[Rfam]
RNA: TD-2 RNA
Organism: Treponema denticola
RNA sequence: ACGGACACGGAUGUCCGUGGUUCCAAACUUCCAAGAGUUUUAGACGCAAGUCUAAAACUCUAAGAUUAAAAAUGUACUCAGGAUGUACAUUUUUAAUCGCCC
Numbered sequence: 001a002c003g004g005a006c007a008c009g010g011a012u013g014u015c016c017g018u019g020g021u022u023c024c025a026a027a028c029u030u031c032c033a034a035g036a037g038u039u040u041u042a043g044a045c046g047c048a049a050g051u052c053u054a055a056a057a058c059u060c061u062a063a064g065a066u067u068a069a070a071a072a073u074g075u076a077c078u079c080a081g082g083a084u085g086u087a088c089a090u091u092u093u094u095a096a097u098c099g100c101c102c
Stems, first nucleotide, its partner, number of pairs: 001018006034061011064098014